Annotation:
Rfam assigns this 88-nucleotide RNA to the family "freshwater-2 RNA".
RNA sequence: CAACGCAAUAAUGCGUUUUAUGCAGGCGUAAGACCCCUGCGUAGCGGCUAGAACCCGCAUCGGACUUCUUUAAGGAGAAAACAAAAUG
Numbered sequence: 001c002a003a004c005g006c007a008a009u010a011a012u013g014c015g016u017u018u019u020a021u022g023c024a025g026g027c028g029u030a031a032g033a034c035c036c037c038u039g040c041g042u043a044g045c046g047g048c049u050a051g052a053a054c055c056c057g058c059a060u061c062g063g064a065c066u067u068c069u070u071u072a073a074g075g076a077g078a079a080a081a082c083a084a085a086a087u088g
Base pairs, nucleotide, nucleotide: 002017003016004015005014006013019043020042021041022040023039024038025037044058045057046056047055
Dot-bracket structure: .(((((......))))).(((((((...........)))))))((((.......))))..............................
Notes:
The base pairs follow the family's consensus structure, which is taken from published work. Rfam classes the family as a cis-regulatory element.